[Rfam]
RNA: eL15-Euryarchaeota ribosomal protein leader
RNA sequence: CGGGAAUGCGCCCGCAGGGAUGUGACUGCGAAAAAAAGCAGUUGAACCAUAAA
Number, nucleotide and partner (000 for none) at each position: 001c014002g013003g012004g011005a000006a000007u000008g000009c000010g000011c004012c003013c002014g001015c000016a000017g048018g047019g000020a000021u000022g000023u000024g043025a042026c041027u040028g039029c000030g000031a000032a000033a000034a000035a000036a000037a000038g000039c028040a027041g026042u025043u024044g000045a000046a000047c018048c017049a000050u000051a000052a000053a000